Shown here is a 117-nucleotide RNA sequence from Sphingomonas sp. WG, a member of the family "ALIL pseudoknot". The family's RNA type in Rfam is cis-regulatory element. Pairs were carried over by alignment from the consensus structure, which is taken from published work. The match comes from Rfam's covariance-model search (116 bits).
[Rfam]
RNA sequence: GGCUUAUUUUGCCCAGGCGGAGCUCGACCGCCCGUUCAGACGAUGAUCGCCUUCAUCGACGAGUAUCGUGGGGAGUAUGGGGUCGAGCCGAUCUGCCGGGUUUUGCCGAUCGCCCCA
Numbered sequence: 001g002g003c004u005u006a007u008u009u010u011g012c013c014c015a016g017g018c019g020g021a022g023c024u025c026g027a028c029c030g031c032c033c034g035u036u037c038a039g040a041c042g043a044u045g046a047u048c049g050c051c052u053u054c055a056u057c058g059a060c061g062a063g064u065a066u067c068g069u070g071g072g073g074a075g076u077a078u079g080g081g082g083u084c085g086a087g088c089c090g091a092u093c094u095g096c097c098g099g100g101u102u103u104u105g106c107c108g109a110u111c112g113c114c115c116c117a
Base pairs, nucleotide, nucleotide: 016032017031018030019029020028078117079116080115081114082113089112090111092109093108095106096105098103